[Rfam]
RNA sequence: CUUCAACGAGCCCAGCCACAGAGGCUCUUCGCGGUCCUGGCCGUACGUCGCGAGCACCGCCUGCGCCUC
Numbered sequence: 001c002u003u004c005a006a007c008g009a010g011c012c013c014a015g016c017c018a019c020a021g022a023g024g025c026u027c028u029u030c031g032c033g034g035u036c037c038u039g040g041c042c043g044u045a046c047g048u049c050g051c052g053a054g055c056a057c058c059g060c061c062u063g064c065g066c067c068u069c
Base pairs, nucleotide, nucleotide: 014026015025016024017023028065030063032059033058037054038053041050043048